[Rfam]
The record is a 68-nucleotide RNA from Varanus komodoensis, which matches "mir-139 microRNA precursor family" in Rfam. Pairs were carried over by alignment from the consensus structure, which was predicted with RNAalifold.

RNA sequence: CUGUAUUCUACAGUGCAUGUGUCUCCAGUGUGGCUGAGCGACUGGAGAUGCGGCCCUGUUGGGGUAAC
Numbered sequence: 001c002u003g004u005a006u007u008c009u010a011c012a013g014u015g016c017a018u019g020u021g022u023c024u025c026c027a028g029u030g031u032g033g034c035u036g037a038g039c040g041a042c043u044g045g046a047g048a049u050g051c052g053g054c055c056c057u058g059u060u061g062g063g064g065u066a067a068c
Stems, first nucleotide, its partner, number of pairs: 006064004010059004015054002018052012